Overview
Rfam assigns this 102-nucleotide RNA sequence from Pseudonocardia ammonioxydans to the family "TPP riboswitch aptamer (THI element)". Rfam links the family to the GO term thiamine pyrophosphate binding. Vitamin B(1) in its active form thiamin pyrophosphate (TPP) is an essential coenzyme that is synthesised by coupling of pyrimidine and thiazole moieties in bacteria. NCBI's taxonomy places the organism under Bacteria, Bacillati, Actinomycetes, Pseudonocardiaceae, Pseudonocardia.
RNA sequence: CGAUGUGACACGGGGUGCUGCCGGUCCGUCCGGUGGCUGAGAAGAAACCCGUCGAACCUGAUCCAGGUCGUACUGGCGAAGGGAAUGUCACACGGCGCAACG
Numbered sequence: 001c002g003a004u005g006u007g008a009c010a011c012g013g014g015g016u017g018c019u020g021c022c023g024g025u026c027c028g029u030c031c032g033g034u035g036g037c038u039g040a041g042a043a044g045a046a047a048c049c050c051g052u053c054g055a056a057c058c059u060g061a062u063c064c065a066g067g068u069c070g071u072a073c074u075g076g077c078g079a080a081g082g083g084a085a086u087g088u089c090a091c092a093c094g095g096c097g098c099a100a101c102g
Base pairs, nucleotide, nucleotide: 006090007089008088009087010086011051012050013049014048016045017037018036019035020034021033022032023031024030057082058081059080063076064075065074066073
Dot-bracket structure: .....(((((((((.(((((((((.....)))))))).......)..)))).....(((...((((......))))...)))...)))))............